[Rfam]
RNA sequence: AUCAUUCUCACAACCAUCGACCUGUGUUAGCAUCUCCCAUCCAUCGUUCGGGGUACGUUCUGUAACGGUGUGACGGUUGUAGAUACUAACAGUUCGUCCAUCAUGGAGCCCUCUUCUUUUAGUAGAGUGCUUCGGACGACAGGCGCGAAGAACAACUUUGGCAGCUUCCGGCAGCCUGAGCUCACCGCAAGGUUUGAGCUCGGUGUAUGGUUGUCUGUCAGGCAGACUGAUUCCGUUUCCCUUUUGCUAGGCCGUCGGCCGUUGAUGCUUGGGACUAACCCAGUCGGCUACAUUC
Numbered sequence: 001a002u003c004a005u006u007c008u009c010a011c012a013a014c015c016a017u018c019g020a021c022c023u024g025u026g027u028u029a030g031c032a033u034c035u036c037c038c039a040u041c042c043a044u045c046g047u048u049c050g051g052g053g054u055a056c057g058u059u060c061u062g063u064a065a066c067g068g069u070g071u072g073a074c075g076g077u078u079g080u081a082g083a084u085a086c087u088a089a090c091a092g093u094u095c096g097u098c099c100a101u102c103a104u105g106g107a108g109c110c111c112u113c114u115u116c117u118u119u120u121a122g123u124a125g126a127g128u129g130c131u132u133c134g135g136a137c138g139a140c141a142g143g144c145g146c147g148a149a150g151a152a153c154a155a156c157u158u159u160g161g162c163a164g165c166u167u168c169c170g171g172c173a174g175c176c177u178g179a180g181c182u183c184a185c186c187g188c189a190a191g192g193u194u195u196g197a198g199c200u201c202g203g204u205g206u207a208u209g210g211u212u213g214u215c216u217g218u219c220a221g222g223c224a225g226a227c228u229g230a231u232u233c234c235g236u237u238u239c240c241c242u243u244u245u246g247c248u249a250g251g252c253c254g255u256c257g258g259c260c261g262u263u264g265a266u267g268c269u270u271g272g273g274a275c276u277a278a279c280c281c282a283g284u285c286g287g288c289u290a291c292a293u294u295c
Base pairs, nucleotide, nucleotide: 018147019146021143022142023141024140025139026090027089028088029087030086033083034082035081036079037076038075040073041072042070043069045067046066047065050061051060052059053058098138101135102134105131106130108128109127158217160215164211165210175202178201179200180199181198182197183196185192186191222288223287225285226284227283228282229281238274239273240272241271246268247267250260251259252258253257
A member of the RNA family "A. fumigatus sRNA Afu_309" from Stemphylium lycopersici, 295 nucleotides long. The match comes from Rfam's covariance-model search (89 bits). Pairs were carried over by alignment from the consensus structure, which was predicted with WAR. A reference for the family is Jochl et al. (2008), "Small ncRNA transcriptome analysis from Aspergillus fumigatus suggests a novel mechanism for regulation of protein synthesis", Nucleic Acids Res.